[Rfam]
RNA sequence: UUCCCUUUGUCAUCCUAUGCCUGGGCUCAUAUAAAAGGGGCUGGGGAGGCAAAGGGACGC
Numbered sequence: 001u002u003c004c005c006u007u008u009g010u011c012a013u014c015c016u017a018u019g020c021c022u023g024g025g026c027u028c029a030u031a032u033a034a035a036a037g038g039g040g041c042u043g044g045g046g047a048g049g050c051a052a053a054g055g056g057a058c059g060c
Base pairs, nucleotide, nucleotide: 002057003056004055005054006053007052009050010049013046014045015044016043017042019041020040021039022038

Shown here is a 60-nucleotide RNA from Salmo salar, a member of the family "mir-204 microRNA precursor family".
Gene Ontology terms of the family: miRNA-mediated post-transcriptional gene silencing and RISC complex.
For this family Rfam cites "Identification and characterization of microRNAs from the bovine adipose tissue and mammary gland" (Gu et al., FEBS Lett, 2007).
Pairs were carried over by alignment from the consensus structure, which was predicted with RNAalifold.